[Rfam]
Overview
This 68-nucleotide RNA from Denticeps clupeoides belongs to the Rfam family "mir-8/mir-141/mir-200 microRNA precursor family". The organism belongs to Denticeps, within Eukaryota.
RNA sequence: AUCUCCAUCUUACGAGGCAGCAUUGGAUAUCACUCUUCUCUCUAAUACUGCCUGGUAAUGAUGAUGAU
Numbered sequence: 001a002u003c004u005c006c007a008u009c010u011u012a013c014g015a016g017g018c019a020g021c022a023u024u025g026g027a028u029a030u031c032a033c034u035c036u037u038c039u040c041u042c043u044a045a046u047a048c049u050g051c052c053u054g055g056u057a058a059u060g061a062u063g064a065u066g067a068u
Base pairs, nucleotide, nucleotide: 002067003066006063007062008061009060010058011057012056013055015053016052017051018050019049020048022046023045024044025043026042027041